[Rfam]
RNA sequence: UAUUUGUUCAUGACGGCCACAGCCUAAAGUGCACACGGCUGUGACUUGAUUUGAAAGA
Numbered sequence: 001u002a003u004u005u006g007u008u009c010a011u012g013a014c015g016g017c018c019a020c021a022g023c024c025u026a027a028a029g030u031g032c033a034c035a036c037g038g039c040u041g042u043g044a045c046u047u048g049a050u051u052u053g054a055a056a057g058a
Stems, first nucleotide, its partner, number of pairs: 001058001003056003015046002018043007029036002
The record is a 58-nucleotide RNA sequence from Moschus moschiferus, which matches "Selenocysteine insertion sequence 1" in Rfam. The source organism's lineage runs through Eukaryota, Vertebrata, Tetrapoda, Mammalia and Moschus. The incorporation of selenocysteine into a protein sequence is directed by an in-frame UGA codon (usually a stop codon) within the coding region of the mRNA. Selenoprotein mRNAs contain a conserved secondary structure in the 3' UTR that is required for the distinction of UGA stop from UGA selenocysteine. The selenocysteine insertion sequence (SECIS) is around 60 nt in length and adopts a hairpin structure which is sufficiently well-defined and conserved to act as a computational screen for selenoprotein genes.